The record is a 131-nucleotide RNA sequence from Synaphobranchus kaupii, which matches "Small nucleolar RNA SNORA68" in Rfam. The family has 26 seed sequences and 1,079 matches in Rfam 15.1. Rfam's curators write: U68 is a member of the H/ACA class of small nucleolar RNAs (snoRNAs) which act as guides in the the modification of uridines to pseudouridines. The family's consensus secondary structure was predicted with PFOLD. Its family is annotated with RNA processing and nucleolus in the Gene Ontology.
RNA sequence: CAUGCACACAAACCCAAAGAACACUGGUAAACCUGUGCCAUGUUCUUGUCAUGUGUGCGUAAAGUAAAAAGCACCUUGUCGCCUUUCAUUAGCUGUUGUGCGAAUGAAAGUGAAAUCAAGGUUCAACACAG
Numbered sequence: 001c002a003u004g005c006a007c008a009c010a011a012a013c014c015c016a017a018a019g020a021a022c023a024c025u026g027g028u029a030a031a032c033c034u035g036u037g038c039c040a041u042g043u044u045c046u047u048g049u050c051a052u053g054u055g056u057g058c059g060u061a062a063a064g065u066a067a068a069a070a071g072c073a074c075c076u077u078g079u080c081g082c083c084u085u086u087c088a089u090u091a092g093c094u095g096u097u098g099u100g101c102g103a104a105u106g107a108a109a110g111u112g113a114a115a116u117c118a119a120g121g122u123u124c125a126a127c128a129c130a131g
Stems, first nucleotide, its partner, number of pairs: 002060008019045005025040005071124001073122005083110008092101002